RNA sequence: CUGGGGUGCAUUGUAGUUGCAUUGCAUGUUUGCUUCGGGUGCAGUGCUCCUUCAGUGCAUCCCAG
Numbered sequence: 001c002u003g004g005g006g007u008g009c010a011u012u013g014u015a016g017u018u019g020c021a022u023u024g025c026a027u028g029u030u031u032g033c034u035u036c037g038g039g040u041g042c043a044g045u046g047c048u049c050c051u052u053c054a055g056u057g058c059a060u061c062c063c064a065g
Stems, first nucleotide, its partner, number of pairs: 001065004006061001007059007015051002019047001021045007
Shown here is a 65-nucleotide RNA from Acanthoscelides obtectus, a member of the family "mir-33 microRNA precursor family". Gene Ontology terms of the family: RISC complex and gene silencing by miRNA.